[Rfam]
Nucleotides: 058
Base pairs, nucleotide, nucleotide: 001056002055003054004053005052006051007050008049009048010047012045013044014043015042016041018039019038020037021036022035
Number, partner (000 for none) and nucleotide at each position: 001056g002055a003054u004053g005052g006051c007050u008049g009048u010047g011000c012045c013044u014043u015042g016041a017000a018039g019038a020037a021036a022035u023000a024000c025000a026000g027000u028000u029000a030000g031000u032000g033000u034000c035022a036021u037020u038019u039018c040000a041016u042015c043014a044013g045012g046000c047010c048009a049008u050007a051006g052005c053004u054003g055002u056001c057000c058000a
Record summary: Rfam assigns this 58-nucleotide sequence from Caenorhabditis brenneri to the family "mir-77 microRNA precursor family". The sequence is in the family's curated seed alignment. Lineage of the source: Eukaryota > Bilateria > Protostomia > Rhabditidae > Caenorhabditis. Pairs were carried over by alignment from the consensus structure, which was predicted with RNAalifold.